[Rfam]
RNA sequence: GCUGGUUGGUGGCGCUUCUCCCUGUUACGGGCGAAGAGAUUACGCAUAGCCAUUUUCUGACAUGCAUAUCCUGAAGCCCGCUGAUAGCGGGCUUUUUUAU
Dot-bracket structure: ........((((..((((.(((......))).))))...))))...............................(((((((.....))))))).......
Description:
Shown here is a 100-nucleotide sequence from Dickeya dadantii, a member of the family "Tryptophan operon leader". Pairs were carried over by alignment from the consensus structure, which is taken from published work. From the family's description: At least 6 amino acid operons are known to be regulated by attenuation. In each a leader sequence of 150-200 bp is found upstream of the first gene in the operon. It is annotated as a cis-regulatory leader.